[Rfam]
RNA sequence: UAAAAGGGCUUCUGUUGUGAGCGGCACACUCUAUAGAGCAGUUUGAUUGCUCUACGUGUGGAAUCGACAUCAACAGAUUUCAGGAGCAUACUUUUUUGGUACUUCGGCAGCAGGUGAUCAUUGGUCUUGGUGCCCGA
Dot-bracket structure: .......((((((((((....)))))(((.....(((((((.....)))))))..)))(((((((..........))))))))))))..................(((.((.((.((((...)))))).)))))...
Overview
The record is a 137-nucleotide sequence from Molossus molossus, which matches "U11 spliceosomal RNA" in Rfam. Lineage of the source: Eukaryota > Metazoa > Euteleostomi > Amniota > Molossus. By type it is a spliceosomal small nuclear RNA. The base pairs follow the family's consensus structure, which is taken from published work.